Overview
This 64-nucleotide RNA from Pipistrellus kuhlii belongs to the Rfam family "mir-9242 microRNA precursor family". The family's consensus secondary structure was predicted with RNAalifold.
RNA sequence: GGCCUCCCUCUGUGAGGCAAUCGAUAGUGGGGCCCCCAGAUCGAUCGCCCCGCAGAGGGAGGUC
Numbered sequence: 001g002g003c004c005u006c007c008c009u010c011u012g013u014g015a016g017g018c019a020a021u022c023g024a025u026a027g028u029g030g031g032g033c034c035c036c037c038a039g040a041u042c043g044a045u046c047g048c049c050c051c052g053c054a055g056a057g058g059g060a061g062g063u064c
Stems, first nucleotide, its partner, number of pairs: 001064014016049003020045006029036002

The source organism's lineage runs through Eukaryota, Opisthokonta, Sarcopterygii, Tetrapoda and Pipistrellus.